[Rfam]
Source information:
A member of the RNA family "mir-156 microRNA precursor family" from Lactuca sativa, 87 nucleotides long. The organism belongs to Lactuca, within Eukaryota. Gene Ontology terms of the family: RISC complex and miRNA-mediated post-transcriptional gene silencing. It scores 63 bits against the family's covariance model. On this family, see Ambros, Cell 2001: "microRNAs: tiny regulators with great potential". About the family: This family represents the plant microRNA (miRNA) precursor mir-156.

RNA sequence: CUGACAGAAGAGAGUGAGCACACAAAGGCUAAUUGUACCGAAGUUACUUGUAUGAUUGUUUUGGGUGCUCACUGCUCUAUCUGUCAC
Numbered sequence: 001c002u003g004a005c006a007g008a009a010g011a012g013a014g015u016g017a018g019c020a021c022a023c024a025a026a027g028g029c030u031a032a033u034u035g036u037a038c039c040g041a042a043g044u045u046a047c048u049u050g051u052a053u054g055a056u057u058g059u060u061u062u063g064g065g066u067g068c069u070c071a072c073u074g075c076u077c078u079a080u081c082u083g084u085c086a087c
Stems, first nucleotide, its partner, number of pairs: 002086007010077003013073009023063003